[Rfam]
RNA sequence: AGAGUUCGCCAGACAAUCGCUAGCUUAGCUAGAGGAAAGUCCGGGCUCCAUAGGGUAGAAUGCCGGGUAACGCCCGGGCAGCGUGAGCUGACGGAAAGUGCCACAGAAAAUAUACCGCCUCUUAGGUAAGGGUGAAAUGGUGCGGUAAGAGCGCACCGCGCGAUUGGUAACAAUCGUGGCAGGGCAAACCCCAUUCGGAGCAAGAUCAAAUAGAAAGUCCAUGCGGCGACCCGUCGUGACUUUGGGUAGAUCGCUAGAAGUAAGCAGUAAUGCAUACUCCAGAGGAAUGAUUGUCCACGACAGAACCCGGCUUAUCGGCGAACUCUAUUU
Number, nucleotide and partner (000 for none) at each position: 001a326002g325003a324004g323005u322006u321007c320008g319009c318010c317011a315012g295013a294014c293015a292016a291017u290018c289019g000020c032021u031022a030023g029024c028025u000026u000027a000028g024029c023030u022031a021032g020033a000034g000035g000036a000037a313038a312039g311040u000041c310042c309043g308044g307045g306046c200047u199048c198049c197050a000051u000052a000053g232054g231055g230056u229057a000058g196059a195060a194061u193062g192063c077064c076065g075066g074067g073068u000069a000070a000071c000072g000073c067074c066075c065076g064077g063078g092079c090080a089081g088082c087083g000084u000085g000086a000087g082088c081089u080090g079091a000092c078093g191094g190095a000096a000097a000098g189099u188100g185101c184102c183103a000104c000105a000106g000107a000108a000109a000110a000111u000112a000113u000114a000115c131116c130117g127118c126119c125120u124121c000122u000123u000124a120125g119126g118127u117128a000129a000130g116131g115132g000133u000134g000135a000136a000137a000138u000139g157140g156141u155142g154143c153144g152145g000146u000147a000148a000149g000150a000151g000152c144153g143154c142155a141156c140157c139158g180159c178160g177161c176162g175163a174164u173165u172166g171167g000168u000169a000170a000171c166172a165173a164174u163175c162176g161177u160178g159179g000180c158181a000182g000183g102184g101185c100186a000187a000188a099189c098190c094191c093192c062193a061194u060195u059196c058197g049198g048199a047200g046201c000202a000203a000204g252205a251206u250207c249208a000209a000210a000211u000212a000213g000214a243215a242216a241217g240218u239219c238220c000221a000222u000223g237224c236225g235226g234227c233228g000229a056230c055231c054232c053233g227234u226235c225236g224237u223238g219239a218240c217241u216242u215243u214244g000245g000246g000247u000248a000249g207250a206251u205252c204253g000254c000255u000256a000257g000258a000259a278260g277261u276262a275263a000264g273265c272266a271267g000268u000269a000270a000271u266272g265273c264274a000275u262276a261277c260278u259279c000280c000281a000282g000283a000284g000285g000286a000287a000288u000289g018290a017291u016292u015293g014294u013295c012296c000297a000298c000299g000300a000301c000302a000303g000304a000305a000306c045307c044308c043309g042310g041311c039312u038313u037314a000315u011316c000317g010318g009319c008320g007321a006322a005323c004324u003325c002326u001327a000328u000329u000330u000
RNA: Bacterial RNase P class A